The record is a 148-nucleotide RNA from Acer yangbiense, which matches "Small nucleolar RNA snoR136" in Rfam. Gene Ontology terms of the family: nucleolus and RNA processing.

RNA sequence: AGGGCUUCAAGUUUUAUACAAAUUGAUUUGUUAUGUUGCUGACAUUUUUAUGAUGCAAUGUUAUAUAUUGAAGCCUAAAAUAAAUGAUCCCCUCGCUAUCUAAAACUUCAAAUUUUUAUGUUGUUUUGGACGUCGGGGAUCUACAUUG
Numbered sequence: 001a002g003g004g005c006u007u008c009a010a011g012u013u014u015u016a017u018a019c020a021a022a023u024u025g026a027u028u029u030g031u032u033a034u035g036u037u038g039c040u041g042a043c044a045u046u047u048u049u050a051u052g053a054u055g056c057a058a059u060g061u062u063a064u065a066u067a068u069u070g071a072a073g074c075c076u077a078a079a080a081u082a083a084a085u086g087a088u089c090c091c092c093u094c095g096c097u098a099u100c101u102a103a104a105a106c107u108u109c110a111a112a113u114u115u116u117u118a119u120g121u122u123g124u125u126u127u128g129g130a131c132g133u134c135g136g137g138g139a140u141c142u143a144c145a146u147u148g
Stems, first nucleotide, its partner, number of pairs: 003075003008070003013065001019060002027057001029055007086141007094132002099130005109120002
About this RNA:
It is annotated as an H/ACA-box small nucleolar RNA.